[Rfam]
RNA sequence: GUCAGAUGAUUUGAAUGAUAGUGCUGAUUCUCUGUGAGGUACGACAUUUAAUAGCAUGUUAGAGUUCUGAUGGCA
Numbered sequence: 001g002u003c004a005g006a007u008g009a010u011u012u013g014a015a016u017g018a019u020a021g022u023g024c025u026g027a028u029u030c031u032c033u034g035u036g037a038g039g040u041a042c043g044a045c046a047u048u049u050a051a052u053a054g055c056a057u058g059u060u061a062g063a064g065u066u067c068u069g070a071u072g073g074c075a
Stems, first nucleotide, its partner, number of pairs: 001074004
Overview:
Small nucleolar RNA SNORD28: a 75-nucleotide RNA sequence from Physeter macrocephalus. The family has 20 seed sequences and 229 matches in Rfam 15.1. It is annotated as a C/D-box small nucleolar RNA. The base pairs follow the family's consensus structure, which was predicted with PFOLD. The match comes from Rfam's covariance-model search (91 bits). A reference for the family is Tycowski et al. (1996), "A mammalian gene with introns instead of exons generating stable RNA products", Nature. Taxonomically the source falls in Physeter (Eukaryota, Bilateria, Craniata, Whippomorpha).